[Rfam]
RNA sequence: AUCCCUACGGCUCUCCUCAGGUCCGCCGCAACUCCUGAGGCCGUAGGGGGCUGGCCCAGAUGCGGUUCAGAGUGGCCUCUUCGAUAUCCGUAUCUCGGGCCAGCCACUCC
Number, nucleotide and partner (000 for none) at each position: 001a000002u000003c048004c047005c046006u045007a044008c043009g042010g041011c000012u000013c000014u000015c000016c039017u038018c037019a036020g035021g034022u000023c000024c000025g000026c000027c000028g000029c000030a000031a000032c000033u000034c021035c020036u019037g018038a017039g016040g000041c010042c009043g008044u007045a006046g005047g004048g003049g105050g104051c103052u102053g101054g100055c099056c098057c097058a000059g095060a000061u000062g000063c000064g000065g000066u000067u000068c000069a000070g000071a000072g000073u000074g000075g000076c000077c000078u000079c000080u000081u000082c000083g000084a000085u000086a000087u000088c000089c000090g000091u000092a000093u000094c000095u059096c000097g057098g056099g055100c054101c053102a052103g051104c050105c049106a000107c000108u000109c000110c000
Background:
Shown here is a 110-nucleotide sequence from Devosia pacifica, a member of the family "EcpR1". About the family: Perviously named SmelC291, SmrC10, or Sra33. According to its overproduction phenotype it was renamed Elongated Cell Phenotype RNA1. The match comes from Rfam's covariance-model search (69 bits). The family's consensus secondary structure was predicted with WAR. Gene Ontology terms of the family: negative regulation of cell cycle, mRNA binding and regulation of translation in response to stress. NCBI's taxonomy places the organism under Bacteria, Pseudomonadati, Alphaproteobacteria, Devosiaceae, Devosia.